A member of the RNA family "Alphaproteobacterial ar14" from Rhizobium deserti, 123 nucleotides long. The source organism's lineage runs through Bacteria, Pseudomonadota, Alphaproteobacteria, Hyphomicrobiales and Rhizobium. Pairs were carried over by alignment from the consensus structure. Rfam describes the family as follows. Smr14C2 was renamed NfeR1 (Nodule Formation Efficiency RNA) highly expressed in salt stress and during the symbiotic interaction on legume roots.
RNA sequence: AUGUUGCAGGGGUCCUAUCCUCCUCCCAAGGGUUCCUGGCGAAGCAGCAGCGCUCCUCCUCCCAGCUGUUGCUUCAUUGUUUCAAGAAGCCUGCCGCACCUCCUCCCGCGGCAGGCUUUUUGU
Dot-bracket structure: ......((((((((((............))))))))))...((((((((((.............))))))))))............(((((((((((..........))))))))))).....